This 285-nucleotide RNA sequence from Sutcliffiella cohnii belongs to the Rfam family "BsrG".

RNA sequence: CAACUACAUAAAGCGGAUGGGCGGUUGACCAUCUCCUUACGGUAAGGAGGUGGGGUAAAAAUGGUGACAUAUGAAGCAAUGAACAUGCUAUUUCAUUUUGGUAUGUUGAUUAUAGCGUUAAUAACAGCGACUGUAACAGUAAUCACACUUGUCAUCCAUAGAAAAGAGAAAUAACCGCCCCCAAGACCAAUGAGUAGGCGGUUUAUUUCUCGUCUAAUUAAAACUUGGUCAGCCGCUCUUCAAGCGGCAUGUAGUUGUGUUGAACGUGUGUUCUCAGCACACGUU
Numbered sequence: 001c002a003a004c005u006a007c008a009u010a011a012a013g014c015g016g017a018u019g020g021g022c023g024g025u026u027g028a029c030c031a032u033c034u035c036c037u038u039a040c041g042g043u044a045a046g047g048a049g050g051u052g053g054g055g056u057a058a059a060a061a062u063g064g065u066g067a068c069a070u071a072u073g074a075a076g077c078a079a080u081g082a083a084c085a086u087g088c089u090a091u092u093u094c095a096u097u098u099u100g101g102u103a104u105g106u107u108g109a110u111u112a113u114a115g116c117g118u119u120a121a122u123a124a125c126a127g128c129g130a131c132u133g134u135a136a137c138a139g140u141a142a143u144c145a146c147a148c149u150u151g152u153c154a155u156c157c158a159u160a161g162a163a164a165a166g167a168g169a170a171a172u173a174a175c176c177g178c179c180c181c182c183a184a185g186a187c188c189a190a191u192g193a194g195u196a197g198g199c200g201g202u203u204u205a206u207u208u209c210u211c212g213u214c215u216a217a218u219u220a221a222a223a224c225u226u227g228g229u230c231a232g233c234c235g236c237u238c239u240u241c242a243a244g245c246g247g248c249a250u251g252u253a254g255u256u257g258u259g260u261u262g263a264a265c266g267u268g269u270g271u272u273c274u275c276a277g278c279a280c281a282c283g284u285u
Base pairs, nucleotide, nucleotide: 001257002256003255004254005253007251008250009249014232016230018186019181020180021179023176024175025174026173029053030052031051033049034048035047036046037045063156064155065154066153067152068151069150076091078089100148101146102145196210197209198208233247234246235245236244263285264284265283266282267281268280269279270278271277272276
Dot-bracket structure: (((((.(((....(.(.((((.((((..(((.(((((.......))))).))).........(((((((......(.(..........).)........(((..........................................)).).)))))))................))))..)))....).........(((.........)))...................).)((((.......)))).))).))))).....((((((((((...))))))))))
The family has 6 seed sequences and 614 matches in Rfam 15.1. The base pairs follow the family's consensus structure, which was predicted with WAR. Rfam's curators write: bsrE, bsrG and bsrH pair through intermolecular interactions with antisense sRNAs. They form type I toxin/antitoxin system that includes an mRNA encoding for a short, toxic peptide (bsrE, bsrG and bsrH) and an antitoxin that is comprised of an antisense RNA. bsrG encodes a 39-amino-acid toxin, and the 180 nucleotide antisense sRNA called SR4 acts as the antitoxin (they overlap by 123 nucleotides). SR4 interaction with the 3'UTR of bsrG RNA promotes bsrG degradation and inhibits its translation. Rfam links the family to the GO terms autolysis and toxin activity. It is annotated as a small RNA. The literature on the family includes a 2008 paper in Gene by Saito et al., "Novel small RNA-encoding genes in the intergenic regions of Bacillus subtilis".